[Rfam]
RNA: tRNA
Organism: Butyrivibrio sp. INlla14
RNA sequence: GGUCCCCUGGUCUAAAGGUCAGGACACAGCCCUUUCAAGGCUGGGAUACUCGGUUCAAGUCCGGUGGGGAUCA
Dot-bracket structure: (((((((..((((........)))).(((((.......)))))....(((.((.......)))))))))))).